Shown here is a 129-nucleotide RNA from Pan troglodytes, a member of the family "Small nucleolar RNA SNORA40". The snoRNA ACA 40 belongs to the H/ACA family of snoRNAs and guides the pseudouridylation of 28S rRNA subunit at position U4565. The family's consensus secondary structure was predicted with RNAalifold. The source organism's lineage runs through Eukaryota, Eumetazoa, Simiiformes, Hominidae and Pan.
RNA sequence: UGGACUUAAUGCGUGCGUUUGUUUAACUUGUGGGCAAGUACUUAUAGACAGGUGCAAACAAUAAAUCUCCUUUUGCAACUGAGAACUUGUUGUUCAGUAUGAGUUUUGAUACUUAUAAGAAAGGCUAUU
Numbered sequence: 001u002g003g004a005c006u007u008a009a010u011g012c013g014u015g016c017g018u019u020u021g022u023u024u025a026a027c028u029u030g031u032g033g034g035c036a037a038g039u040a041c042u043u044a045u046a047g048a049c050a051g052g053u054g055c056a057a058a059c060a061a062u063a064a065a066u067c068u069c070c071u072u073u074u075g076c077a078a079c080u081g082a083g084a085a086c087u088u089g090u091u092g093u094u095c096a097g098u099a100u101g102a103g104u105u106u107u108g109a110u111a112c113u114u115a116u117a118a119g120a121a122a123g124g125c126u127a128u129u
Stems, first nucleotide, its partner, number of pairs: 001056002004053004010048001015041001017039006027032001065126001067124002071120005082107009